Small nucleolar RNA SNORD14: a 125-nucleotide RNA sequence from Pyrus ussuriensis x Pyrus communis. The literature on the family includes a 1996 paper in Nucleic Acids Res by Samarsky et al., "An essential domain in Saccharomyces cerevisiae U14 snoRNA is absent in vertebrates, but conserved in other yeasts". From the family's description: U14 small nucleolar RNA (U14 snoRNA) is required for early cleavages of eukaryotic precursor rRNAs. In yeasts, this molecule possess a stem-loop region (known as the Y-domain) which is essential for function. A similar structure, but with a different consensus sequence, is found in plants, but is absent in vertebrates.
[Rfam]
RNA sequence: UAUCUAUGAUGACAACAUCUAAGGCUUGUUUCUCAACAACAUUCGCAGUGGCCGCCUAAGAGCCUUCGCCUUUUGCCAGGCUUGAGAGCUAAUGCUGCUUGACUCUUCCUUGGAUGUCUGCGAUU
Numbered sequence: 001u002a003u004c005u006a007u008g009a010u011g012a013c014a015a016c017a018u019c020u021a022a023g024g025c026u027u028g029u030u031u032c033u034c035a036a037c038a039a040c041a042u043u044c045g046c047a048g049u050g051g052c053c054g055c056c057u058a059a060g061a062g063c064c065u066u067c068g069c070c071u072u073u074u075g076c077c078a079g080g081c082u083u084g085a086g087a088g089c090u091a092a093u094g095c096u097g098c099u100u101g102a103c104u105c106u107u108c109c110u111u112g113g114a115u116g117u118c119u120g121c122g123a124u125u
Base pairs, nucleotide, nucleotide: 002124003123004122062089063088065086066085067084